[Rfam]
RNA sequence: GAGUUAUUGUAGCAUGCGAGGUUAAAUUGUAGAAAUGGAGCCGUAGGGAAACCGAGUCUUAAUAGGGCGCUUUAGUAUGUUGCAAUAGACGCGAAACGGGGUGAUCUAUCCAUGGGCAGGUUGAAGGUGAAGUAACAUUCACUGGAGGACCGAACCCACUUUCGUUGAAACGACAGGGGAUGACCUGUGGAUAGUGGUGAAAUUCCAAUCGAACUCCGUGAUAGCUCGUU
Numbered sequence: 001g002a003g004u005u006a007u008u009g010u011a012g013c014a015u016g017c018g019a020g021g022u023u024a025a026a027u028u029g030u031a032g033a034a035a036u037g038g039a040g041c042c043g044u045a046g047g048g049a050a051a052c053c054g055a056g057u058c059u060u061a062a063u064a065g066g067g068c069g070c071u072u073u074a075g076u077a078u079g080u081u082g083c084a085a086u087a088g089a090c091g092c093g094a095a096a097c098g099g100g101g102u103g104a105u106c107u108a109u110c111c112a113u114g115g116g117c118a119g120g121u122u123g124a125a126g127g128u129g130a131a132g133u134a135a136c137a138u139u140c141a142c143u144g145g146a147g148g149a150c151c152g153a154a155c156c157c158a159c160u161u162u163c164g165u166u167g168a169a170a171c172g173a174c175a176g177g178g179g180a181u182g183a184c185c186u187g188u189g190g191a192u193a194g195u196g197g198u199g200a201a202a203u204u205c206c207a208a209u210c211g212a213a214c215u216c217c218g219u220g221a222u223a224g225c226u227c228g229u230u
Base pairs, nucleotide, nucleotide: 005087006086007085008084009083010082011081012080013079014078015077016076017075020042021041022040023039026036027035028034046053047052056068057067058066059065090228091227093225097218098217099216100215101214102213106194107193108192109191110190111189112188113187114186115185116184117182119151120150121149122148126143127142128141129140130139131138155179156178157177159176160175162173163172196206197205
The family of this 230-nucleotide part of an RNA from Ureaplasma urealyticum is "Bacterial large subunit ribosomal RNA".